[Rfam]
Rfam assigns this 105-nucleotide RNA from Duganella sp. Root198D2 to the family "SAM-I/IV (S-adenosyl methionine) riboswitch aptamer". A search with the family's covariance model found it, with a score of 56 bits. Clan: SAM clan.

RNA sequence: AUUCAGCAUCAAGAGUCGGUUUAUCCGACGCCAACCUGCCUUACCCGGGCAAGGUGGAAGCCAUCACGGCGAUGCGGCCUAUUAACGGCAACGAAGCGGGCGCGA
Number, nucleotide and partner (000 for none) at each position: 001a000002u000003u000004c000005a000006g075007c074008a073009u072010c071011a000012a000013g000014a000015g029016u028017c027018g026019g025020u000021u000022u000023a000024u000025c019026c018027g017028a016029c015030g000031c057032c056033a000034a000035c054036c053037u052038g050039c049040c048041u000042u000043a000044c099045c098046c000047g000048g040049g039050c038051a000052a037053g036054g035055u000056g032057g031058a000059a000060g000061c000062c000063a000064u000065c000066a000067c000068g000069g000070c000071g010072a009073u008074g007075c006076g000077g089078c088079c087080u000081a000082u000083u000084a000085a000086c000087g079088g078089c077090a000091a000092c000093g000094a000095a000096g000097c000098g045099g044100g000101c000102g000103c000104g000105a000